[Rfam]
RNA sequence: GGACACCGAACCGACCCGGGCAGGGGCGGGGGACCCACCCGUUCCACUGCCGUCCUCGCGACGGCUAGGGGUGAAGCCGGACAGCGGAGUUCGCGUGUCCGGCCGGGCCAUCCUCACCGGUCCGAACCCGACAGCUCACCUCGCAGGCGUGCGGAGAGGACAG
Dot-bracket structure: ...(.((...((...........))((((((....(...............................)(((.....(((((((............)))))))..((((...........))))...))).........)))))).)).)..............
RNA: c-di-AMP riboswitch aptamer (ydaO/yuaA leader)
Organism: Streptomyces tateyamensis